The record is a 356-nucleotide RNA from Penicillium angulare, which matches "Nuclear RNase P" in Rfam.
It is annotated as a ribozyme.
The match comes from Rfam's covariance-model search (41 bits).
A reference for the family is Brown (1999), "The Ribonuclease P Database", Nucleic Acids Res.
RNA sequence: CCCCCACCAAUGCUGCGUUUCUUUGCUACACACGAUAGAGCUACGGUUCUAUCCUCGGUUCGCCGAGACCAAUCGCAAAUGAGAAAUUCGGAGGAAUCUUCAACUACCAACCCGCUCCCUUCUAUAUGAUUGGAGUCGGUACUGCCCGUAAGGGUCUGGUGUGAUCUCACCUGCACUCCGGCAUCAGAAACAUCGGGGCCUCCGGCUUGCCGGUUGGGUUUCCCCUUGGGAGAGUCGGUGCGAAGAUUGUGCGUGAAAACACUUUAGUGCAAUACGCAGCAUGCCUGUCUUCUCUCUCAAGAAUCUUCUUGAGGGGGGAGAUGGUAUCAUUCGAUUCCGAUUAUUCUGGUGUGGGG
Numbered sequence: 001c002c003c004c005c006a007c008c009a010a011u012g013c014u015g016c017g018u019u020u021c022u023u024u025g026c027u028a029c030a031c032a033c034g035a036u037a038g039a040g041c042u043a044c045g046g047u048u049c050u051a052u053c054c055u056c057g058g059u060u061c062g063c064c065g066a067g068a069c070c071a072a073u074c075g076c077a078a079a080u081g082a083g084a085a086a087u088u089c090g091g092a093g094g095a096a097u098c099u100u101c102a103a104c105u106a107c108c109a110a111c112c113c114g115c116u117c118c119c120u121u122c123u124a125u126a127u128g129a130u131u132g133g134a135g136u137c138g139g140u141a142c143u144g145c146c147c148g149u150a151a152g153g154g155u156c157u158g159g160u161g162u163g164a165u166c167u168c169a170c171c172u173g174c175a176c177u178c179c180g181g182c183a184u185c186a187g188a189a190a191c192a193u194c195g196g197g198g199c200c201u202c203c204g205g206c207u208u209g210c211c212g213g214u215u216g217g218g219u220u221u222c223c224c225c226u227u228g229g230g231a232g233a234g235u236c237g238g239u240g241c242g243a244a245g246a247u248u249g250u251g252c253g254u255g256a257a258a259a260c261a262c263u264u265u266a267g268u269g270c271a272a273u274a275c276g277c278a279g280c281a282u283g284c285c286u287g288u289c290u291u292c293u294c295u296c297u298c299a300a301g302a303a304u305c306u307u308c309u310u311g312a313g314g315g316g317g318g319a320g321a322u323g324g325u326a327u328c329a330u331u332c333g334a335u336u337c338c339g340a341u342u343a344u345u346c347u348g349g350u351g352u353g354g355g356g
Stems, first nucleotide, its partner, number of pairs: 001356004007349003012280007022079004034053006089339005098245004144155004158171004176240001178238005196225003281327005